Annotation: A member of the RNA family "THF (Tetrahydrofolate) riboswitch aptamer" from Secundilactobacillus malefermentans, 96 nucleotides long.
[Rfam]
RNA sequence: AUUGGAGUAGGAACUAAUGCGUAAAGUGCCGAUGGAACGGAAUGUGAACGUCGGACGAAAAGCCUAGCUUGCGAUAUUAGUUCCGCAUUCGCCGCC
Numbered sequence: 001a002u003u004g005g006a007g008u009a010g011g012a013a014c015u016a017a018u019g020c021g022u023a024a025a026g027u028g029c030c031g032a033u034g035g036a037a038c039g040g041a042a043u044g045u046g047a048a049c050g051u052c053g054g055a056c057g058a059a060a061a062g063c064c065u066a067g068c069u070u071g072c073g074a075u076a077u078u079a080g081u082u083c084c085g086c087a088u089u090c091g092c093c094g095c096c
Stems, first nucleotide, its partner, number of pairs: 003094003010084010020073003026056002029054006040090005060070004
Taxonomically the source falls in Secundilactobacillus (Bacteria, Bacillota, Lactobacillales, Lactobacillaceae).